[Rfam]
RNA sequence: UCCCUUGCCAUCUCAAGCAAAGCUGCCUAUAUCUCUCGGUGCCGGAGGUUUCGACCUUGGCUAUGGCGAUAAACGGUAGAUGAAAUAAGUGUUGUGGACCCGGGGGCAGUGCCCGGCGUCUCCACCAUCAGCCUUACGGGCUGACGCUAUGGGGACGAAACAGGCUCGACACGCAUGGUAAAGAUCUACUUUUUGCCCGGUAUUGUUCCGCCGUCAUCGGGCUGACUUUACAAGUGCCAACGAUAACUCUGAGGUGCUCGCUGUUGCUGCAUAAGCGAUAAGCGCGGUUCGGGGGGUGCACCGGGCAACAGAAGCCCCCCCA
Numbered sequence: 001u002c003c004c005u006u007g008c009c010a011u012c013u014c015a016a017g018c019a020a021a022g023c024u025g026c027c028u029a030u031a032u033c034u035c036u037c038g039g040u041g042c043c044g045g046a047g048g049u050u051u052c053g054a055c056c057u058u059g060g061c062u063a064u065g066g067c068g069a070u071a072a073a074c075g076g077u078a079g080a081u082g083a084a085a086u087a088a089g090u091g092u093u094g095u096g097g098a099c100c101c102g103g104g105g106g107c108a109g110u111g112c113c114c115g116g117c118g119u120c121u122c123c124a125c126c127a128u129c130a131g132c133c134u135u136a137c138g139g140g141c142u143g144a145c146g147c148u149a150u151g152g153g154g155a156c157g158a159a160a161c162a163g164g165c166u167c168g169a170c171a172c173g174c175a176u177g178g179u180a181a182a183g184a185u186c187u188a189c190u191u192u193u194u195g196c197c198c199g200g201u202a203u204u205g206u207u208c209c210g211c212c213g214u215c216a217u218c219g220g221g222c223u224g225a226c227u228u229u230a231c232a233a234g235u236g237c238c239a240a241c242g243a244u245a246a247c248u249c250u251g252a253g254g255u256g257c258u259c260g261c262u263g264u265u266g267c268u269g270c271a272u273a274a275g276c277g278a279u280a281a282g283c284g285c286g287g288u289u290c291g292g293g294g295g296g297u298g299c300a301c302c303g304g305g306c307a308a309c310a311g312a313a314g315c316c317c318c319c320c321c322a
Stems, first nucleotide, its partner, number of pairs: 041061005065197005075190007090175003094172003100116005117157007198213004203224001205222001207221003285303004293318005
RNA: Alphaproteobacteria transfer-messenger RNA
Organism: Bombella intestini